[Rfam]
RNA: S10-Clostridia ribosomal protein leader
RNA sequence: UGAUAGCGAUGAAGCGUGAGGUUGCCACCAUCCGGUGGGUUUUUCCGUGGAGCGAAUGUCAAGAGGUCGAGAUCAGCAAAUUCGGCCGGGAACCCUGACGGCAA
Numbered sequence: 001u002g003a004u005a006g007c008g009a010u011g012a013a014g015c016g017u018g019a020g021g022u023u024g025c026c027a028c029c030a031u032c033c034g035g036u037g038g039g040u041u042u043u044u045c046c047g048u049g050g051a052g053c054g055a056a057u058g059u060c061a062a063g064a065g066g067u068c069g070a071g072a073u074c075a076g077c078a079a080a081u082u083c084g085g086c087c088g089g090g091a092a093c094c095c096u097g098a099c100g101g102c103a104a
Base pairs, nucleotide, nucleotide: 014048015047016046018045019044020043021041025038026037027036028035029034057103058102059101060100065087066086067085068084069083070082071081
Dot-bracket structure: .............(((.((((...(((((....)))))..).))))))........((((....(((((((.........)))))))............)))).